Shown here is a 54-nucleotide RNA from Clupea harengus, a member of the family "Editing element of GABA-3 exon 9".
Nucleotides: 054
Stems, first nucleotide, its partner, number of pairs: 002053002006051001008049001011046001013045002015042003019038002022035005
Number, partner (000 for none) and nucleotide at each position: 001000a002053a003052g004000g005000u006051g007000u008049c009000g010000u011046a012000u013045g014044c015042c016041a017040c018000c019038g020037c021000g022035a023034u024033g025032g026031a027000c028000u029000g030000g031026u032025u033024c034023a035022u036000c037020g038019c039000c040017g041016u042015g043000u044014g045013c046011u047000u048000c049008g050000c051006c052003u053002u054000c
It scores 64 bits against the family's covariance model. The family's RNA type in Rfam is cis-regulatory element. Taxonomically the source falls in Clupea (Eukaryota, Chordata, Neopterygii, Teleostei).